[Rfam]
RNA: Selenocysteine insertion sequence 1
RNA sequence: CUGCGCUCCAUGACGGGAAUCGCCGAAACGUCCCCCGGGCUCCGGGCGCUUCCCAGACCCCGCGCAG
Number, nucleotide and partner (000 for none) at each position: 001c067002u066003g065004c064005g063006c000007u000008c000009c000010a000011u000012g000013a000014c000015g054016g053017g052018a051019a050020u000021c048022g047023c046024c045025g000026a000027a000028a000029c000030g040031u039032c038033c000034c000035c000036c000037g000038g032039g031040c030041u000042c000043c000044g000045g024046g023047c022048g021049c000050u019051u018052c017053c016054c015055a000056g000057a000058c000059c000060c000061c000062g000063c005064g004065c003066a002067g001